[Rfam]
RNA: Small nucleolar RNA SNORA15
RNA sequence: GUAUGGAUGAACACUGUGUUCUUUUUAUCCGUAGUAGACACAGCCAGACACCAAGCCAGUGCCCGUGAUGGUAUGGGGAGUUCUUUCAUAGCUUACCAUUUUCUAAUGUGGAUAUAAAU
Numbered sequence: 001g002u003a004u005g006g007a008u009g010a011a012c013a014c015u016g017u018g019u020u021c022u023u024u025u026u027a028u029c030c031g032u033a034g035u036a037g038a039c040a041c042a043g044c045c046a047g048a049c050a051c052c053a054a055g056c057c058a059g060u061g062c063c064c065g066u067g068a069u070g071g072u073a074u075g076g077g078g079a080g081u082u083c084u085u086u087c088a089u090a091g092c093u094u095a096c097c098a099u100u101u102u103c104u105a106a107u108g109u110g111g112a113u114a115u116a117a118a119u
Base pairs, nucleotide, nucleotide: 001056002055004053005052006051014043015042016041017040018039019038062111063110064108065107066106067100068099069098070097071096072095073094075092078089